[Rfam]
RNA sequence: AUUUGUCUUCAAGGCAGGGUGAGAUUCCCGACCGGCGGUAUAGCCCGCAACCCGCAUGAGCGGUGGAAUCCAGUGCAAUUCUGGAUGCCGACAGUAAAGUCUGGUAUAGAGAAGAUUAGA
Numbered sequence: 001a002u003u004u005g006u007c008u009u010c011a012a013g014g015c016a017g018g019g020u021g022a023g024a025u026u027c028c029c030g031a032c033c034g035g036c037g038g039u040a041u042a043g044c045c046c047g048c049a050a051c052c053c054g055c056a057u058g059a060g061c062g063g064u065g066g067a068a069u070c071c072a073g074u075g076c077a078a079u080u081c082u083g084g085a086u087g088c089c090g091a092c093a094g095u096a097a098a099g100u101c102u103g104g105u106a107u108a109g110a111g112a113a114g115a116u117u118a119g120a
Stems, first nucleotide, its partner, number of pairs: 003118001005116006017029003031100002033090002035048004043088002052063002068086001070084004092103003
RNA: FMN riboswitch aptamer (RFN element)
Organism: Limosilactobacillus gastricus